[Rfam]
RNA sequence: AAACGUGCUCCGGGGUCGGUGAAAGUCCGAACCGGCGGUGAUAGUCCGCGACCCGUUGCCAAAAGUCCCGAAGGGGCCGGAGGCUGCGGCUGAGCCGGUGGAAUUCCGGUACCGACAGUUACAGUCUGGAUGGGAGAAGCACGUAC
Number, nucleotide and partner (000 for none) at each position: 001a000002a000003a144004c143005g142006u141007g140008c139009u138010c136011c000012g000013g000014g000015g000016u000017c029018g028019g027020u000021g000022a000023a000024a000025g000026u000027c019028c018029g017030a000031a125032c124033c114034g113035g049036c048037g047038g046039u000040g000041a000042u000043a000044g112045u111046c038047c037048g036049c035050g000051a000052c000053c089054c088055g087056u086057u000058g000059c000060c000061a000062a000063a000064a000065g000066u000067c000068c000069c000070g000071a000072a000073g000074g000075g000076g000077c000078c000079g000080g000081a000082g000083g000084c000085u000086g056087c055088g054089g053090c000091u000092g000093a000094g110095c109096c108097g107098g106099u000100g000101g000102a000103a000104u000105u000106c098107c097108g096109g095110u094111a045112c044113c034114g033115a000116c128117a127118g126119u000120u000121a000122c000123a000124g032125u031126c118127u117128g116129g000130a000131u000132g000133g000134g000135a000136g010137a000138a009139g008140c007141a006142c005143g004144u003145a000146c000